[Rfam]
RNA sequence: GCCUUGAUGGUGAAAUGGUAGACACGCGAGAUUCAAAAUUUCGUGCUUAAAGCAUGGAGGUUCGAGUCCUCUUCAAGGCA
Numbered sequence: 001g002c003c004u005u006g007a008u009g010g011u012g013a014a015a016u017g018g019u020a021g022a023c024a025c026g027c028g029a030g031a032u033u034c035a036a037a038a039u040u041u042c043g044u045g046c047u048u049a050a051a052g053c054a055u056g057g058a059g060g061u062u063c064g065a066g067u068c069c070u071c072u073u074c075a076a077g078g079c080a
Base pairs, nucleotide, nucleotide: 001079002078003077004076005075006074007073010025011024012023027043028042029041030040031039056072057071058070059069060068

Notes
The record is an 80-nucleotide sequence, which matches "tRNA" in Rfam. Pairs were carried over by alignment from the consensus structure, which is taken from published work. Gene Ontology term of the family: triplet codon-amino acid adaptor activity. Rfam classes the family as a transfer RNA.